[Rfam]
Rfam assigns this 154-nucleotide sequence from Roseburia sp. CAG:309 to the family "Ribosomal protein L10 leader".
RNA sequence: UAUAAAUUUUGAUGACUGCCGUAGACAGUAGGUAUAGAUGGUCCUUCGGGAUUUCAGAUGUGUAAGUGCAAGAGCCGCCUACCGAGGAGUAAAGAAUGUGGAUUUACGUCCCCUCUUUUUGCUAUGGCGAGAAGAGGGGGUUUUCUAUAUUACG
Number, nucleotide and partner (000 for none) at each position: 001u000002a000003u000004a000005a000006a000007u000008u000009u000010u000011g000012a000013u000014g000015a000016c000017u000018g000019c000020c000021g000022u000023a000024g000025a000026c000027a000028g082029u081030a080031g079032g078033u077034a000035u000036a000037g000038a000039u000040g000041g000042u000043c000044c000045u000046u000047c000048g000049g000050g000051a000052u000053u000054u000055c000056a000057g000058a000059u000060g000061u000062g000063u000064a000065a000066g000067u000068g000069c000070a000071a000072g000073a000074g000075c000076c000077g033078c032079c031080u030081a029082c028083c000084g000085a000086g000087g000088a000089g000090u000091a000092a000093a000094g000095a000096a000097u000098g000099u000100g000101g000102a000103u000104u000105u000106a000107c000108g000109u000110c139111c138112c137113c136114u135115c134116u133117u132118u131119u130120u129121g128122c127123u000124a000125u000126g000127g122128c121129g120130a119131g118132a117133a116134g115135a114136g113137g112138g111139g110140g000141u000142u000143u000144u000145c000146u000147a000148u000149a000150u000151u000152a000153c000154g000
The match comes from Rfam's covariance-model search (55 bits). NCBI's taxonomy places the organism under Bacteria, Clostridia, Lachnospirales, Lachnospiraceae, Roseburia. Rfam describes the family as follows. This family is a putative r-protein leader autoregulatory structure found in B. subtilis and other low-GC Gram-positive bacteria. It is located in the 5' untranslated regions of mRNAs encoding ribosomal proteins L10 and L12 (rplJ-rplL). A Rho-independent transcription terminator structure that is probably involved in regulation is included at the 3' end.